Record summary
Shown here is a 67-nucleotide RNA sequence, a member of the family "SAH (S-adenosyl-L-homocysteine) riboswitch aptamer". The literature on the family includes a 2008 paper in Mol Cell by Wang et al., "Riboswitches that sense S-adenosylhomocysteine and activate genes involved in coenzyme recycling".
[Rfam]
RNA sequence: CGUUGCGAGGAGCGUUGCGACGACCGCCAAGGUCGCCAGGCUCGCAACGGCGGCGGCCCCGUCUUCA
Numbered sequence: 001c002g003u004u005g006c007g008a009g010g011a012g013c014g015u016u017g018c019g020a021c022g023a024c025c026g027c028c029a030a031g032g033u034c035g036c037c038a039g040g041c042u043c044g045c046a047a048c049g050g051c052g053g054c055g056g057c058c059c060c061g062u063c064u065u066c067a
Base pairs, nucleotide, nucleotide: 002048003047004046005045006044007043008042021035022034023033024032025031
The family has 52 seed sequences and 1,354 matches in Rfam 15.1.